[Rfam]
RNA: MIR168 microRNA precursor family
RNA sequence: UGUUCCGGCGCCUCUGCUUCGCUUGGUGCAGGUCGGGAACUCUCUUCGUUUGCUCACUGUUGAGGUUGAAUUGUGCCUCAGAAUUUUUGUUGUGCGAUUCUACGUGUGAGCUUCGGUGCAAAAUUCGUGUCUUAGGAUUUGGAGAGAACUAGGUUCCCGCCUUGCAUCAACUGAAUCGGAGACCGCGGUGAAU
Numbered sequence: 001u002g003u004u005c006c007g008g009c010g011c012c013u014c015u016g017c018u019u020c021g022c023u024u025g026g027u028g029c030a031g032g033u034c035g036g037g038a039a040c041u042c043u044c045u046u047c048g049u050u051u052g053c054u055c056a057c058u059g060u061u062g063a064g065g066u067u068g069a070a071u072u073g074u075g076c077c078u079c080a081g082a083a084u085u086u087u088u089g090u091u092g093u094g095c096g097a098u099u100c101u102a103c104g105u106g107u108g109a110g111c112u113u114c115g116g117u118g119c120a121a122a123a124u125u126c127g128u129g130u131c132u133u134a135g136g137a138u139u140u141g142g143a144g145a146g147a148a149c150u151a152g153g154u155u156c157c158c159g160c161c162u163u164g165c166a167u168c169a170a171c172u173g174a175a176u177c178g179g180a181g182a183c184c185g186c187g188g189u190g191a192a193u
Stems, first nucleotide, its partner, number of pairs: 013180002018175003023170010034159005040153002